This 96-nucleotide RNA belongs to the Rfam family "PhotoRC-II RNA".
By type it is a cis-regulatory element.
RNA sequence: AAACCUUCCUGGACACUCCCCAAACCAAGACCUAUAGGGUGUAUAAAAACGUCUUUCAUAUCUCAAUCUUAGGGUGAUUGAGAAAUAGUAAAACCA
Numbered sequence: 001a002a003a004c005c006u007u008c009c010u011g012g013a014c015a016c017u018c019c020c021c022a023a024a025c026c027a028a029g030a031c032c033u034a035u036a037g038g039g040u041g042u043a044u045a046a047a048a049a050c051g052u053c054u055u056u057c058a059u060a061u062c063u064c065a066a067u068c069u070u071a072g073g074g075u076g077a078u079u080g081a082g083a084a085a086u087a088g089u090a091a092a093a094c095c096a
Base pairs, nucleotide, nucleotide: 016041018039019038020037027055028054029053030052031051062082063081064080065079066078067077068076
Dot-bracket structure: ...............[.[[[......(((((.....]]].].........)))))......(((((((.......)))))))..............